[Rfam]
RNA: chrB-a RNA
RNA sequence: GCGAUGGGGAUCGCGAUCUCCCCACGAGGCGACAGCCGAAGCAUCGCGUCCUGCCAGGUUCACAAAGGACGCUGCCAUG
Numbered sequence: 001g002c003g004a005u006g007g008g009g010a011u012c013g014c015g016a017u018c019u020c021c022c023c024a025c026g027a028g029g030c031g032a033c034a035g036c037c038g039a040a041g042c043a044u045c046g047c048g049u050c051c052u053g054c055c056a057g058g059u060u061c062a063c064a065a066a067g068g069a070c071g072c073u074g075c076c077a078u079g
Stems, first nucleotide, its partner, number of pairs: 005024006046072006